[Rfam]
RNA sequence: GCAGUACCUCGUUAGGUGAGGCUUCUGCACGAACACAGGCCACUGAUCUCACGACGUCGAGAGACGCCCAAGGUUAGGACAGAUCUCCCCGGCUUAAGGGGUGAUCCAAAGUGGCUUCCCGGUCUUGAUCGGGACACGUCGUGCAGUGCCAAAACUCGGACGUGGAGGUGUUUU
Numbered sequence: 001g002c003a004g005u006a007c008c009u010c011g012u013u014a015g016g017u018g019a020g021g022c023u024u025c026u027g028c029a030c031g032a033a034c035a036c037a038g039g040c041c042a043c044u045g046a047u048c049u050c051a052c053g054a055c056g057u058c059g060a061g062a063g064a065c066g067c068c069c070a071a072g073g074u075u076a077g078g079a080c081a082g083a084u085c086u087c088c089c090c091g092g093c094u095u096a097a098g099g100g101g102u103g104a105u106c107c108a109a110a111g112u113g114g115c116u117u118c119c120c121g122g123u124c125u126u127g128a129u130c131g132g133g134a135c136a137c138g139u140c141g142u143g144c145a146g147u148g149c150c151a152a153a154a155c156u157c158g159g160a161c162g163u164g165g166a167g168g169u170g171u172u173u174u
Stems, first nucleotide, its partner, number of pairs: 005170006011161002013097001015156003020150003025146008039115005045075005055066004082106004088100003117134005
Dot-bracket structure: ....(((((((([.(((..(((..((((((((......(((((.(((((.....((((....))))....)))))......((((..(((......])))..))))....))))).(((((........)))))....)))))))).)))...)))...))...))))))....